[Rfam]
RNA sequence: AGGCCUGGAGAGAGGCAGGGUCUGAUCUGCAGCCUCUGUGGCAGCUGUUGAUCAGCCAUUGCCUCUCUUUCUCUCUG
Numbered sequence: 001a002g003g004c005c006u007g008g009a010g011a012g013a014g015g016c017a018g019g020g021u022c023u024g025a026u027c028u029g030c031a032g033c034c035u036c037u038g039u040g041g042c043a044g045c046u047g048u049u050g051a052u053c054a055g056c057c058a059u060u061g062c063c064u065c066u067c068u069u070u071c072u073c074u075c076u077g
Stems, first nucleotide, its partner, number of pairs: 008069011020057001022055006030047004
RNA: mir-574 microRNA precursor family